A member of the RNA family "small nucleolar RNA snoR127" from Camellia sinensis, 195 nucleotides long. It is annotated as a C/D-box small nucleolar RNA. The organism belongs to Camellia, within Eukaryota. Gene Ontology terms of the family: RNA processing and nucleolus.
RNA sequence: CUGGAAUGAUGCAUCUUAGCCAAAGCAGAUAAUGAUGUGCUCCUUGAGGUAUCUUCUUUUAAGCUUGUAAUAAUUGCUACUAUGGAGGCACUUGGUGAUCUUCCUAUGCAGUUGAUCAAGCCUUAAGUUGGGUACCUUUUGUAGAAGCGCAUCUCUCUGGUGAUAACACAGAGAUUGGUUUCUUGUCUGACCAGA
Numbered sequence: 001c002u003g004g005a006a007u008g009a010u011g012c013a014u015c016u017u018a019g020c021c022a023a024a025g026c027a028g029a030u031a032a033u034g035a036u037g038u039g040c041u042c043c044u045u046g047a048g049g050u051a052u053c054u055u056c057u058u059u060u061a062a063g064c065u066u067g068u069a070a071u072a073a074u075u076g077c078u079a080c081u082a083u084g085g086a087g088g089c090a091c092u093u094g095g096u097g098a099u100c101u102u103c104c105u106a107u108g109c110a111g112u113u114g115a116u117c118a119a120g121c122c123u124u125a126a127g128u129u130g131g132g133u134a135c136c137u138u139u140u141g142u143a144g145a146a147g148c149g150c151a152u153c154u155c156u157c158u159g160g161u162g163a164u165a166a167c168a169c170a171g172a173g174a175u176u177g178g179u180u181u182c183u184u185g186u187c188u189g190a191c192c193a194g195a
Base pairs, nucleotide, nucleotide: 001194002193003192004191